[Rfam]
RNA: Ruegeria cis2 sRNA
Organism: Rhodobacterales bacterium Y4I
RNA sequence: GGAGCUGAAAUGCGGGUUGUAGUUGAUGAACACAAAGCCGCGGGACUGGUCGAUGCAGUGAAACAGCGGGUUCCAGUCGAACAUCGCCAGCAUGAAGCUGGGCAGUGUGUUAGCCAGAAACAUCUUGCCCGAAGCGAUCAUGUUGGCCCGCUG
Numbered sequence: 001g002g003a004g005c006u007g008a009a010a011u012g013c014g015g016g017u018u019g020u021a022g023u024u025g026a027u028g029a030a031c032a033c034a035a036a037g038c039c040g041c042g043g044g045a046c047u048g049g050u051c052g053a054u055g056c057a058g059u060g061a062a063a064c065a066g067c068g069g070g071u072u073c074c075a076g077u078c079g080a081a082c083a084u085c086g087c088c089a090g091c092a093u094g095a096a097g098c099u100g101g102g103c104a105g106u107g108u109g110u111u112a113g114c115c116a117g118a119a120a121c122a123u124c125u126u127g128c129c130c131g132a133a134g135c136g137a138u139c140a141u142g143u144u145g146g147c148c149c150g151c152u153g
Base pairs, nucleotide, nucleotide: 004033006032007031013025014024015023039055040054041052042051043050064153065152066151067150068149070082071081072080073079086147087146088145089144090143091142092141093140094139098134099133101130102129103127104126105125107123108122110119111118